[Rfam]
RNA sequence: GCAUAUUUCAGGUUUGUGCGUGAAUCUAAUAAAACCGUAAGCCAUAAGAAAAUCUGGAAGGUGGAUUUUUUUCAUGUUAGAUUCACGCACAAACUCGUAAUCUGUCU
Numbered sequence: 001g002c003a004u005a006u007u008u009c010a011g012g013u014u015u016g017u018g019c020g021u022g023a024a025u026c027u028a029a030u031a032a033a034a035c036c037g038u039a040a041g042c043c044a045u046a047a048g049a050a051a052a053u054c055u056g057g058a059a060g061g062u063g064g065a066u067u068u069u070u071u072u073c074a075u076g077u078u079a080g081a082u083u084c085a086c087g088c089a090c091a092a093a094c095u096c097g098u099a100a101u102c103u104g105u106c107u
Base pairs, nucleotide, nucleotide: 001105002104003103005101006100007099011095012094013093014092015091016090017089018088019087020086021085022084023083024082025081026080028078029077030076043064